A member of the RNA family "Small nucleolar RNA SNORA40" from Piliocolobus tephrosceles, 128 nucleotides long. The base pairs follow the family's consensus structure, which was predicted with RNAalifold. Gene Ontology terms of the family: RNA processing and nucleolus. The family's RNA type in Rfam is H/ACA-box small nucleolar RNA. Rfam 15.1 lists 2,550 matches to the family in 517 species.

RNA sequence: UACACUUGUUUAUGUUUUUGUUUAACUUGUGGUCAAAGACUUAUAGACAGGUGCAAAAACUAAAUCAUCUUUUCCAACCCAGAGAUCAUUGUUCAGUAUGAGUUUUGAUACAUAUAAGAAGACAUAUU
Numbered sequence: 001u002a003c004a005c006u007u008g009u010u011u012a013u014g015u016u017u018u019u020g021u022u023u024a025a026c027u028u029g030u031g032g033u034c035a036a037a038g039a040c041u042u043a044u045a046g047a048c049a050g051g052u053g054c055a056a057a058a059a060c061u062a063a064a065u066c067a068u069c070u071u072u073u074c075c076a077a078c079c080c081a082g083a084g085a086u087c088a089u090u091g092u093u094c095a096g097u098a099u100g101a102g103u104u105u106u107g108a109u110a111c112a113u114a115u116a117a118g119a120a121g122a123c124a125u126a127u128u
Stems, first nucleotide, its partner, number of pairs: 001055001003053007011045001014040007026031001064125002068121001070119004080107005086101004
From the family's description: The snoRNA ACA 40 belongs to the H/ACA family of snoRNAs and guides the pseudouridylation of 28S rRNA subunit at position U4565.